[Rfam]
RNA: MIR396 microRNA precursor family
RNA sequence: CUUUGUAGUCUUCCACAGCUUUCUUGAACUGCAGUCAUCAUCCUUUGGAAGUGGGCAUAUACCUCAGUUGCAGUUCAAUAAAGCUGUGGGAAACUACAGAGA
Numbered sequence: 001c002u003u004u005g006u007a008g009u010c011u012u013c014c015a016c017a018g019c020u021u022u023c024u025u026g027a028a029c030u031g032c033a034g035u036c037a038u039c040a041u042c043c044u045u046u047g048g049a050a051g052u053g054g055g056c057a058u059a060u061a062c063c064u065c066a067g068u069u070g071c072a073g074u075u076c077a078a079u080a081a082a083g084c085u086g087u088g089g090g091a092a093a094c095u096a097c098a099g100a101g102a
Base pairs, nucleotide, nucleotide: 003099004098005097006096007095013089014088015087017085018084019083020082021081022080024078025077026076027075029073030072031071032070033069034068035067